[Rfam]
RNA sequence: UAGGAAGGCUAAAUUAUAGAUCGGCUUUUCUUAUGUUUAGUGUAAAAAUUGGAGUUAUUUUAUGUCUCUAAGUACUGAAGAAAAAGCGCAAAUUAUAGCAGAUUAUGGUCGUAAUAAA
Numbered sequence: 001u002a003g004g005a006a007g008g009c010u011a012a013a014u015u016a017u018a019g020a021u022c023g024g025c026u027u028u029u030c031u032u033a034u035g036u037u038u039a040g041u042g043u044a045a046a047a048a049u050u051g052g053a054g055u056u057a058u059u060u061u062a063u064g065u066c067u068c069u070a071a072g073u074a075c076u077g078a079a080g081a082a083a084a085a086g087c088g089c090a091a092a093u094u095a096u097a098g099c100a101g102a103u104u105a106u107g108g109u110c111g112u113a114a115u116a117a118a
Stems, first nucleotide, its partner, number of pairs: 007026004012021001049071006

About this RNA
The family of this 118-nucleotide sequence from Arsenophonus endosymbiont of Aleurodicus dispersus is "Ribosomal S15 leader". Rfam's curators write: The E. coli Ribosomal S15 gene 5' UTR can form two alternative structures. One that is a series of three hairpins, The other includes a pseudoknot. This structure causes translational regulation of the S15 protein. The alignment of this family contains only the final two hairpins which are conserved in other species, and also includes the complete region that forms the alternate structures. The literature on the family includes a 1996 paper in Biochimie by Benard et al., "Pseudoknot and translational control in the expression of the S15 ribosomal protein".